[Rfam]
RNA sequence: CCGCCCGUCGCACCUACCGAUUGAAUGAUUCGGUGAAGCUUUCGGAUUACGCCAUCAGCCUCGGCCGACGGCGUGAGAAGUUAUCUAAACCUCAUCAUUUAGAGGAAGGUGAAGUCGUAACAAGGUUUCCGUAGGUGAACCUGCGGAAGGAUCAUUA
Numbered sequence: 001c002c003g004c005c006c007g008u009c010g011c012a013c014c015u016a017c018c019g020a021u022u023g024a025a026u027g028a029u030u031c032g033g034u035g036a037a038g039c040u041u042u043c044g045g046a047u048u049a050c051g052c053c054a055u056c057a058g059c060c061u062c063g064g065c066c067g068a069c070g071g072c073g074u075g076a077g078a079a080g081u082u083a084u085c086u087a088a089a090c091c092u093c094a095u096c097a098u099u100u101a102g103a104g105g106a107a108g109g110u111g112a113a114g115u116c117g118u119a120a121c122a123a124g125g126u127u128u129c130c131g132u133a134g135g136u137g138a139a140c141c142u143g144c145g146g147a148a149g150g151a152u153c154a155u156u157a
Base pairs, nucleotide, nucleotide: 001124003121006117007116009114011111012110013109014108015107017105018104021101023100024099025098026097027096028095029094032091033090034089037086038085040083043080047076048075049074050073051072052071053070055068056067058065059064126149127148128147129146130145131144132143133142134141135140
RNA: Eukaryotic small subunit ribosomal RNA, nucleotides 1641 to 1797